RNA sequence: UGACCAUUUUGUAUAUUUAGGAAGAUUCCUGUACAAAAUAUAUAGCCAUGCGGACAGCUGGGUCAAAUGCCGA
Numbered sequence: 001u002g003a004c005c006a007u008u009u010u011g012u013a014u015a016u017u018u019a020g021g022a023a024g025a026u027u028c029c030u031g032u033a034c035a036a037a038a039u040a041u042a043u044a045g046c047c048a049u050g051c052g053g054a055c056a057g058c059u060g061g062g063u064c065a066a067a068u069g070c071c072g073a
Stems, first nucleotide, its partner, number of pairs: 001065005006039010
Streptococcus sRNA SpF59 (ldcC RNA): a 73-nucleotide RNA sequence. By type it is a small RNA. For this family Rfam cites "Control of virulence by small RNAs in Streptococcus pneumoniae" (Mann et al., PLoS Pathog, 2012).